The family of this 162-nucleotide RNA sequence from Trichonephila clavipes is "U1 spliceosomal RNA". It is annotated as a spliceosomal small nuclear RNA. NCBI's taxonomy places the organism under Eukaryota, Eumetazoa, Araneomorphae, Orbiculariae, Trichonephila. Rfam describes the family as follows. U1 is a small nuclear RNA (snRNA) component of the spliceosome (involved in pre-mRNA splicing). Its 5' end forms complementary base pairs with the 5' splice junction, thus defining the 5' donor site of an intron.
RNA sequence: AUACUUACUUGGCACUGGAGUUAUCCUCGAUCACGAAGGAGGAUCUCACGAGUAGAGGUCUGCCAUUGAAAGACGAUGGACUGACACUCGCCACUUCCACAAAACGUGGUUGGUUGGGGUGUGUAAUUUUUGGUAGCGGGGCUGCGUCCGCGCGGCGCCUGU
Numbered sequence: 001a002u003a004c005u006u007a008c009u010u011g012g013c014a015c016u017g018g019a020g021u022u023a024u025c026c027u028c029g030a031u032c033a034c035g036a037a038g039g040a041g042g043a044u045c046u047c048a049c050g051a052g053u054a055g056a057g058g059u060c061u062g063c064c065a066u067u068g069a070a071a072g073a074c075g076a077u078g079g080a081c082u083g084a085c086a087c088u089c090g091c092c093a094c095u096u097c098c099a100c101a102a103a104a105c106g107u108g109g110u111u112g113g114u115u116g117g118g119g120u121g122u123g124u125a126a127u128u129u130u131u132g133g134u135a136g137c138g139g140g141g142c143u144g145c146g147u148c149c150g151c152g153c154g155g156c157g158c159c160u161g162u
Base pairs, nucleotide, nucleotide: 012122013121014120015119018047019046020045024043025042026041027040028039050089051088052087053086055085057082058081059080061078062077064075091117092116093115094113095112098109137161138160139159140158141156143154144153145152146151